Source information:
The record is an 84-nucleotide sequence from Pleomorphomonas diazotrophica, which matches "ZMP/ZTP riboswitch aptamer (pfl RNA motif)" in Rfam. NCBI's taxonomy places the organism under Bacteria, Pseudomonadati, Alphaproteobacteria, Pleomorphomonadaceae, Pleomorphomonas.
RNA sequence: CGCGAUCCGCGUGACCGGCGAGGUCAGUGGGAUCACCAUCGGGGAGCGCGGAUCGUUUGGGACGCCGCUCGCCGAGCUCUCCGC
Numbered sequence: 001c002g003c004g005a006u007c008c009g010c011g012u013g014a015c016c017g018g019c020g021a022g023g024u025c026a027g028u029g030g031g032a033u034c035a036c037c038a039u040c041g042g043g044g045a046g047c048g049c050g051g052a053u054c055g056u057u058u059g060g061g062a063c064g065c066c067g068c069u070c071g072c073c074g075a076g077c078u079c080u081c082c083g084c
Stems, first nucleotide, its partner, number of pairs: 003055010015043002017073005027039004064077002